[Rfam]
RNA sequence: GUUGUUUCUUAAUUUCUUUUUUUGAUUAUUAUUCAGGGACCCGUGUUCACUGCGUUUUCCCCUAAAACGCAGUGAACACAGGUCCCUGAUUAUUAUAAUGUUCACUGGAAAAAA
Numbered sequence: 001g002u003u004g005u006u007u008c009u010u011a012a013u014u015u016c017u018u019u020u021u022u023u024g025a026u027u028a029u030u031a032u033u034c035a036g037g038g039a040c041c042c043g044u045g046u047u048c049a050c051u052g053c054g055u056u057u058u059c060c061c062c063u064a065a066a067a068c069g070c071a072g073u074g075a076a077c078a079c080a081g082g083u084c085c086c087u088g089a090u091u092a093u094u095a096u097a098a099u100g101u102u103c104a105c106u107g108g109a110a111a112a113a114a
Base pairs, nucleotide, nucleotide: 001099002098003097004096023089025087036086037085038084039083040082041081043079044078045077048074049073050072051071052070054068055067056066057065058064

tp2: a 114-nucleotide RNA sequence. By type it is a small RNA.